[Rfam]
The family of this 304-nucleotide sequence from Rynchops niger is "7SK RNA". The source organism's lineage runs through Eukaryota, Bilateria, Euteleostomi, Tetrapoda and Rynchops. About the family: 7SK was discovered as an abundant small nuclear RNA in the mid-70s but a possible function has only recently been suggested. Two independent studies have found that 7SK RNA binds the CDK9/cyclin T complex (known as elongation factor P-TEFb). P-TEFb activates transcription by phosphorylating the C-terminal domain of RNA polymerase II. This process is negatively regulated by the 7SK RNP. The secondary structure of 7SK RNA shown here was proposed by Wasserman and Steitz on the basis of chemical modification and enzymatic cleavage experiments. By type it is a non-coding RNA gene. Its Rfam clan is "7SK clan".
RNA sequence: GGAUGCGAGGGCGAUCUGGCUGCAACAUCUGUCACCCCAUUGAUCGCCAGGGUUGAUUCGGCUGAUCUGGCUGGCUAGGCAGGUGUCCCCUUCCUCCCUCACCCAUCCAUGUGCAUCCCUCCUGAAGCUACGCACUCAGUCGAAGAGAAUGACCUUCCCUGAUAGAGACGUACCGUUCAUCGGUCAAGGGUAUACAGUAGCUGUGCUCCCCUGCUAAAACCUCCAAACAAGCUCAAGGUCCAUUUGUAGGAGAAUAUAGGGUAGUCAAGCUUCCAAGACUGCAGACACAGCCAUUCUAUAAAAU
Numbered sequence: 001g002g003a004u005g006c007g008a009g010g011g012c013g014a015u016c017u018g019g020c021u022g023c024a025a026c027a028u029c030u031g032u033c034a035c036c037c038c039a040u041u042g043a044u045c046g047c048c049a050g051g052g053u054u055g056a057u058u059c060g061g062c063u064g065a066u067c068u069g070g071c072u073g074g075c076u077a078g079g080c081a082g083g084u085g086u087c088c089c090c091u092u093c094c095u096c097c098c099u100c101a102c103c104c105a106u107c108c109a110u111g112u113g114c115a116u117c118c119c120u121c122c123u124g125a126a127g128c129u130a131c132g133c134a135c136u137c138a139g140u141c142g143a144a145g146a147g148a149a150u151g152a153c154c155u156u157c158c159c160u161g162a163u164a165g166a167g168a169c170g171u172a173c174c175g176u177u178c179a180u181c182g183g184u185c186a187a188g189g190g191u192a193u194a195c196a197g198u199a200g201c202u203g204u205g206c207u208c209c210c211c212u213g214c215u216a217a218a219a220c221c222u223c224c225a226a227a228c229a230a231g232c233u234c235a236a237g238g239u240c241c242a243u244u245u246g247u248a249g250g251a252g253a254a255u256a257u258a259g260g261g262u263a264g265u266c267a268a269g270c271u272u273c274c275a276a277g278a279c280u281g282c283a284g285a286c287a288c289a290g291c292c293a294u295u296c297u298a299u300a301a302a303a304u
Stems, first nucleotide, its partner, number of pairs: 001108003005102001007100005013093002018090002025086009035074002037070003042067004046062003117170001119167003122139004127135001140162003147158001149156001200270003206264002209261005221252004227247005